The family of this 61-nucleotide RNA sequence from Cyanomargarita calcarea is "Nitrogen stress-induced RNA 1". NCBI's taxonomy places the organism under Bacteria, Cyanobacteriota, Cyanophyceae, Cyanomargarita, Cyanomargarita calcarea. The family has 17 seed sequences and 962 matches in Rfam 15.1. A search with the family's covariance model found it, with a score of 52 bits.
RNA sequence: UGGUAGAUGCACCCUGAUAACUGACUCCCCUCGUGACUUAUUGACAUUGGGGGUUUUUUUA
Numbered sequence: 001u002g003g004u005a006g007a008u009g010c011a012c013c014c015u016g017a018u019a020a021c022u023g024a025c026u027c028c029c030c031u032c033g034u035g036a037c038u039u040a041u042u043g044a045c046a047u048u049g050g051g052g053g054u055u056u057u058u059u060u061a
Stems, first nucleotide, its partner, number of pairs: 002013003027053005033047003037043001